Rfam assigns this 140-nucleotide RNA sequence from Brevibacillus laterosporus to the family "FMN riboswitch aptamer (RFN element)". A search with the family's covariance model found it, with a score of 122 bits. The family's consensus secondary structure is taken from published work.
RNA sequence: AACCACCUUCAGGGCAGGGUGAAAUUCCCGACCGGCGGUAAUGACGAUUAUGUCUGAGCCCGCGACUCGCAAACCGUUUUUGCGACUGACUUGGUGAAAAUCCAAGGCCGACGGUAUAGUCCGGAUGGGAGAAGGUACAA
Number, nucleotide and partner (000 for none) at each position: 001a000002a000003c000004c000005a136006c135007c134008u133009u132010c131011a000012g000013g000014g000015c000016a000017g029018g028019g027020u000021g000022a000023a000024a000025u000026u000027c019028c018029c017030g000031a120032c119033c110034g109035g063036c062037g061038g060039u000040a000041a000042u000043g000044a000045c000046g000047a000048u000049u000050a000051u000052g000053u000054c000055u000056g000057a000058g108059c107060c038061c037062g036063c035064g000065a000066c000067u085068c084069g000070c000071a000072a000073a000074c000075c000076g000077u000078u000079u000080u000081u000082g000083c000084g068085a067086c000087u000088g000089a000090c106091u105092u104093g103094g102095u000096g000097a000098a000099a000100a000101u000102c094103c093104a092105a091106g090107g059108c058109c034110g033111a000112c123113g122114g121115u000116a000117u000118a000119g032120u031121c114122c113123g112124g000125a000126u000127g000128g000129g000130a000131g010132a009133a008134g007135g006136u005137a000138c000139a000140a000